[Rfam]
RNA sequence: AGCCUGGACUGCAUAAUUCAUUUAUGCAUUCCAUUUUUCAAGUCCAAAAGAAAUCCACUCUUGUUUAGAGAUGAAACUUCUUCAUAGUUUUUUCUUCAGACGGAGAGCGAUACAUUU
Numbered sequence: 001a002g003c004c005u006g007g008a009c010u011g012c013a014u015a016a017u018u019c020a021u022u023u024a025u026g027c028a029u030u031c032c033a034u035u036u037u038u039c040a041a042g043u044c045c046a047a048a049a050g051a052a053a054u055c056c057a058c059u060c061u062u063g064u065u066u067a068g069a070g071a072u073g074a075a076a077c078u079u080c081u082u083c084a085u086a087g088u089u090u091u092u093u094c095u096u097c098a099g100a101c102g103g104a105g106a107g108c109g110a111u112a113c114a115u116u117u
Stems, first nucleotide, its partner, number of pairs: 005033004010028007053111003058107005063101004069095003073091006
Tetrahymena snoRNA TtnuHACA15: a 117-nucleotide sequence from Tetrahymena thermophila.
A reference for the family is Andersen and Nielsen (2012), "Experimental identification and analysis of macronuclear non-coding RNAs from the ciliate Tetrahymena thermophila", Nucleic Acids Res.
Gene Ontology terms of the family: RNA processing and nucleolus.
Rfam's curators put it in the seed alignment.